[Rfam]
The family of this 170-nucleotide sequence from Vitreoscilla filiformis is "Group II catalytic intron D1-D4-3".

RNA sequence: GUCGCCGCGAAGCGGGGUCUGGAGGAAACCGUAGACAAGAGGUGCGAGGCGACGAACAGAAACCACAUCAAGGAGGCCCAGGACGCCAGACGAGCCGGCACUAAAUGGUGAAUUCGAUGGUACAGCGUCUAGGGUAGAUGUGGCGCUUGUGCAUCAACAGUGUUCACGUU
Dot-bracket structure: .((((......))))............(.(((..((....(((((((((((...........((((((.......(((..((((((..((...((((........))))....)).........))))))..)))..))))))))))).))))))......))..))).)
Numbered sequence: 001g002u003c004g005c006c007g008c009g010a011a012g013c014g015g016g017g018u019c020u021g022g023a024g025g026a027a028a029c030c031g032u033a034g035a036c037a038a039g040a041g042g043u044g045c046g047a048g049g050c051g052a053c054g055a056a057c058a059g060a061a062a063c064c065a066c067a068u069c070a071a072g073g074a075g076g077c078c079c080a081g082g083a084c085g086c087c088a089g090a091c092g093a094g095c096c097g098g099c100a101c102u103a104a105a106u107g108g109u110g111a112a113u114u115c116g117a118u119g120g121u122a123c124a125g126c127g128u129c130u131a132g133g134g135u136a137g138a139u140g141u142g143g144c145g146c147u148u149g150u151g152c153a154u155c156a157a158c159a160g161u162g163u164u165c166a167c168g169u170u
Stems, first nucleotide, its partner, number of pairs: 002015004028170001030168003035163002041155006047148005063143006076135003081130006089115002094109004
Gene Ontology term of the family: Group II intron splicing.
Pairs were carried over by alignment from the consensus structure.